mir-192/215 microRNA precursor family: a 79-nucleotide sequence from Varanus komodoensis.

Nucleotides: 079
Stems, first nucleotide, its partner, number of pairs: 001079005008072001010070002013067004018061014
Number, partner (000 for none) and nucleotide at each position: 001079a002078c003077a004076c005075a006000g007000c008072u009000a010070u011069g012000a013067c014066c015065u016064a017000u018061g019060a020059a021058u022057u023056g024055a025054c026053a027052g028051c029050c030049a031048g032000u033000c034000g035000c036000u037000u038000c039000u040000c041000c042000c043000c044000c045000a046000u047000c048031c049030u050029g051028g052027c053026u054025g055024u056023c057022a058021g059020u060019u061018u062000u063000g064016u065015a066014g067013g068000g069011c070010a071000c072008g073000a074000g075005u076004g077003u078002g079001u
About the family: This family represents the human microRNA (miRNA) precursors mir-192 and mir-215. Animal miRNAs are transcribed as ~70nt precursors and subsequently processed by the Dicer enzyme to give a ~22nt product. In this case the mature sequence comes from the 5' arm of the precursor. The extents of the hairpin precursors are not generally known and are estimated based on hairpin prediction. For this family Rfam cites "New microRNAs from mouse and human" (Lagos-Quintana et al., RNA, 2003).